This 151-nucleotide RNA sequence from Streptococcus salivarius belongs to the Rfam family "Listeria sRNA rli38". By type it is a small RNA. NCBI's taxonomy places the organism under Bacteria, Bacillati, Lactobacillales, Streptococcaceae, Streptococcus salivarius. For this family Rfam cites "The Listeria transcriptional landscape from saprophytism to virulence" (Toledo-Arana et al., Nature, 2009). Pairs were carried over by alignment from the consensus structure, which was predicted with RNAalifold.
RNA sequence: GUAGAGUGGGAAUAAAAUAUAAACCUAAUUUAAAGUGACUUGAUUGAUUUAACAGCAUUUUGAAUUGUUUUAAAACGCUAAAAUCUAAUUAAUUAUAUUUGGUUCCCCACCAAAUACCCCACCAGAAUUUCUUUCUGGUGGGGAUUUUUUA
Numbered sequence: 001g002u003a004g005a006g007u008g009g010g011a012a013u014a015a016a017a018u019a020u021a022a023a024c025c026u027a028a029u030u031u032a033a034a035g036u037g038a039c040u041u042g043a044u045u046g047a048u049u050u051a052a053c054a055g056c057a058u059u060u061u062g063a064a065u066u067g068u069u070u071u072a073a074a075a076c077g078c079u080a081a082a083a084u085c086u087a088a089u090u091a092a093u094u095a096u097a098u099u100u101g102g103u104u105c106c107c108c109a110c111c112a113a114a115u116a117c118c119c120c121a122c123c124a125g126a127a128u129u130u131c132u133u134u135c136u137g138g139u140g141g142g143g144a145u146u147u148u149u150u151a
Stems, first nucleotide, its partner, number of pairs: 008107005046085005052079001055078002058075005086097001088096002114147001116145001117143010